Source information:
A member of the RNA family "Plastid-psbA-1 3UTR RNA" from Musa balbisiana, 106 nucleotides long. On this family, see Richter et al., Plant Commun 2023: "Retrograde signaling in plants: A critical review focusing on the GUN pathway and beyond". By type it is a cis-regulatory element. The base pairs follow the family's consensus structure, which was predicted with LocARNA. Rfam's curators write: Plastid psbA-1 is a non-coding RNA (ncRNA) present in plastids.
RNA sequence: UUUACAUUUUUUAUUUUUUUUUUGUCUUAGUGUAUACGAAUCGUUGAAACAAAGUAGCAAUAACCCCAUGUCUUGCUUUAGCAAGACAUGGGGUUAUUGCUACUUU
Numbered sequence: 001u002u003u004a005c006a007u008u009u010u011u012u013a014u015u016u017u018u019u020u021u022u023u024g025u026c027u028u029a030g031u032g033u034a035u036a037c038g039a040a041u042c043g044u045u046g047a048a049a050c051a052a053a054g055u056a057g058c059a060a061u062a063a064c065c066c067c068a069u070g071u072c073u074u075g076c077u078u079u080a081g082c083a084a085g086a087c088a089u090g091g092g093g094u095u096a097u098u099g100c101u102a103c104u105u106u
Stems, first nucleotide, its partner, number of pairs: 051106013065092002068089001070087005